Background:
This 98-nucleotide sequence from Firmicutes bacterium CAG:194 belongs to the Rfam family "SAM riboswitch aptamer (S box leader)". The family's consensus secondary structure is taken from published work. It scores 73 bits against the family's covariance model. Its family is annotated with regulation of gene expression in the Gene Ontology.
RNA sequence: CUCUUAUUCAGAGUGGUGGAGGUACAGAGGACCUGUGAAGCCACGGCAACCCCCUAUCGGGAAGGUGCCAACCUGAGCGAGCUAUCGAACAAUAAGAG
Numbered sequence: 001c002u003c004u005u006a007u008u009c010a011g012a013g014u015g016g017u018g019g020a021g022g023u024a025c026a027g028a029g030g031a032c033c034u035g036u037g038a039a040g041c042c043a044c045g046g047c048a049a050c051c052c053c054c055u056a057u058c059g060g061g062a063a064g065g066u067g068c069c070a071a072c073c074u075g076a077g078c079g080a081g082c083u084a085u086c087g088a089a090c091a092a093u094a095a096g097a098g
Base pairs, nucleotide, nucleotide: 001098002097003096004095005094006093007092008091013044014043015042016041017040021033022032023031030074045069046068047067048066050065051064052061053060054059078087079086080085